Shown here is a 146-nucleotide RNA from Cohnella sp. OV330, a member of the family "c-di-AMP riboswitch aptamer (ydaO/yuaA leader)". Rfam's curators write: This family represents a conserved RNA structure found upstream of the ydaO and yuaA genes in Bacillus subtilis and related genes in other bacteria.

[Rfam]
RNA sequence: ACUAAGUGUACGCUUAAUUCCCGGUAUCGGCCGGGAAACGGGGGAACCGAAUCUUUAUGGGGCGAAUUGAAGCCUUCACAGGCUUCAUAGGGUACCAUCUUACCCGAGUCCGUCAGCUAACCUCGUAGGCAGUGGAUGGGUCACAU
Numbered sequence: 001a002c003u004a005a006g007u008g009u010a011c012g013c014u015u016a017a018u019u020c021c022c023g024g025u026a027u028c029g030g031c032c033g034g035g036a037a038a039c040g041g042g043g044g045a046a047c048c049g050a051a052u053c054u055u056u057a058u059g060g061g062g063c064g065a066a067u068u069g070a071a072g073c074c075u076u077c078a079c080a081g082g083c084u085u086c087a088u089a090g091g092g093u094a095c096c097a098u099c100u101u102a103c104c105c106g107a108g109u110c111c112g113u114c115a116g117c118u119a120a121c122c123u124c125g126u127a128g129g130c131a132g133u134g135g136a137u138g139g140g141u142c143a144c145a146u
Stems, first nucleotide, its partner, number of pairs: 012130003018037008038126006048059002060111003068087006090105004